[Rfam]
RNA sequence: GGGCUGUGACGAUUCUUAGAGAUAGUCAUGCACCACUCUGAUUUUCAAUGCUGAUAAUUUUCUCAUACCCAUUUAUCUGAGCCC
Numbered sequence: 001g002g003g004c005u006g007u008g009a010c011g012a013u014u015c016u017u018a019g020a021g022a023u024a025g026u027c028a029u030g031c032a033c034c035a036c037u038c039u040g041a042u043u044u045u046c047a048a049u050g051c052u053g054a055u056a057a058u059u060u061u062c063u064c065a066u067a068c069c070c071a072u073u074u075a076u077c078u079g080a081g082c083c084c
Stems, first nucleotide, its partner, number of pairs: 001084004